[Rfam]
RNA sequence: CCGGGGAGCCGGGCAGCCGCGGGCAUCUUCGGAUGCGCGAGGAAAGUCCGGGCUCCACGAAACAAGGGUGGCGGGUAAUGCCCGCCGGGCGAGUCGGGUUUUCAGGCCCGGCGAAGCCUAGGGAAAGUGCCACAGAGAGCAGACCGCCUCGCCUCGUCAGGGUUCGCCCUGAAAGGCAGGUAAGGGUGAAAGGGUGCGGCAAGAGCGCACCGCGCUUCCGGUAACGGAAAGCGGCAAGGUAAACCCCACCCGGAGCAAGACCGAAUAGGGGCUGCGCGCUGUCUUGAACGGCGGGUUUGUUUCAGACCCAGGCAGCCCGGGUUGGUCGCUUGAGCGGCGUAGCAAUGCGUCGCCUAGAGGAAUGGCUGCCGCCGCGGCGUAAGGUCCCUCGAUUGGGAGACCACGCCAGGCACAGAACCCGGCUUACAGGCUCCCCGGUGCA
Numbered sequence: 001c002c003g004g005g006g007a008g009c010c011g012g013g014c015a016g017c018c019g020c021g022g023g024c025a026u027c028u029u030c031g032g033a034u035g036c037g038c039g040a041g042g043a044a045a046g047u048c049c050g051g052g053c054u055c056c057a058c059g060a061a062a063c064a065a066g067g068g069u070g071g072c073g074g075g076u077a078a079u080g081c082c083c084g085c086c087g088g089g090c091g092a093g094u095c096g097g098g099u100u101u102u103c104a105g106g107c108c109c110g111g112c113g114a115a116g117c118c119u120a121g122g123g124a125a126a127g128u129g130c131c132a133c134a135g136a137g138a139g140c141a142g143a144c145c146g147c148c149u150c151g152c153c154u155c156g157u158c159a160g161g162g163u164u165c166g167c168c169c170u171g172a173a174a175g176g177c178a179g180g181u182a183a184g185g186g187u188g189a190a191a192g193g194g195u196g197c198g199g200c201a202a203g204a205g206c207g208c209a210c211c212g213c214g215c216u217u218c219c220g221g222u223a224a225c226g227g228a229a230a231g232c233g234g235c236a237a238g239g240u241a242a243a244c245c246c247c248a249c250c251c252g253g254a255g256c257a258a259g260a261c262c263g264a265a266u267a268g269g270g271g272c273u274g275c276g277c278g279c280u281g282u283c284u285u286g287a288a289c290g291g292c293g294g295g296u297u298u299g300u301u302u303c304a305g306a307c308c309c310a311g312g313c314a315g316c317c318c319g320g321g322u323u324g325g326u327c328g329c330u331u332g333a334g335c336g337g338c339g340u341a342g343c344a345a346u347g348c349g350u351c352g353c354c355u356a357g358a359g360g361a362a363u364g365g366c367u368g369c370c371g372c373c374g375c376g377g378c379g380u381a382a383g384g385u386c387c388c389u390c391g392a393u394u395g396g397g398a399g400a401c402c403a404c405g406c407c408a409g410g411c412a413c414a415g416a417a418c419c420c421g422g423c424u425u426a427c428a429g430g431c432u433c434c435c436c437g438g439u440g441c442a
Stems, first nucleotide, its partner, number of pairs: 001438010011427001012370007020039002023036005044425003048422005053255004062302001064300001066251005071085005086121001087119004122246002127244002129240003144185002146181004152175001154174001193211006212235001213233005218227003259327004269318006294308005334353008
Bacterial RNase P class A: a 442-nucleotide RNA sequence from Novosphingobium sp. PhB165. From the family's description: Ribonuclease P (RNase P) is a ubiquitous endoribonuclease, found in archaea, bacteria and eukarya as well as chloroplasts and mitochondria. The match comes from Rfam's covariance-model search (280 bits). The family's consensus secondary structure is taken from published work.